[Rfam]
RNA sequence: UCGCCCCGGAGAUCAGUGUCAGAAAGCGCCAUUGGCGCAAUCUAUAUCGAACAUGUUUCUUGCCUUUUACCAGAAACAUCCGGGCACUGUCUCCGCCUAUGGGGCCGGUAGCGGCACAAUUUUUGGAACCUUUAGAUAAACAC
Numbered sequence: 001u002c003g004c005c006c007c008g009g010a011g012a013u014c015a016g017u018g019u020c021a022g023a024a025a026g027c028g029c030c031a032u033u034g035g036c037g038c039a040a041u042c043u044a045u046a047u048c049g050a051a052c053a054u055g056u057u058u059c060u061u062g063c064c065u066u067u068u069a070c071c072a073g074a075a076a077c078a079u080c081c082g083g084g085c086a087c088u089g090u091c092u093c094c095g096c097c098u099a100u101g102g103g104g105c106c107g108g109u110a111g112c113g114g115c116a117c118a119a120u121u122u123u124u125g126g127a128a129c130c131u132u133u134a135g136a137u138a139a140a141c142a143c
Base pairs, nucleotide, nucleotide: 003105004104005103006102009093010092011091014089015088016087017086018085019084020083053079054078055077056076057075058074059073060072132142